RNA sequence: UAGCAGCACGUAAAUAUUGGAGUUAAGGCUCUCUGUGAUACCUCCAGUAUUGAUCGUGCUGCUGAAGCAAAG
Number, nucleotide and partner (000 for none) at each position: 001u064002a063003g062004c061005a060006g059007c058008a057009c056010g055011u053012a000013a051014a050015u049016a048017u047018u046019g045020g044021a043022g042023u000024u000025a000026a000027g000028g000029c000030u000031c000032u000033c000034u000035g000036u000037g000038a000039u000040a000041c000042c022043u021044c020045c019046a018047g017048u016049a015050u014051u013052g000053a011054u000055c010056g009057u008058g007059c006060u005061g004062c003063u002064g001065a000066a000067g000068c000069a000070a000071a000072g000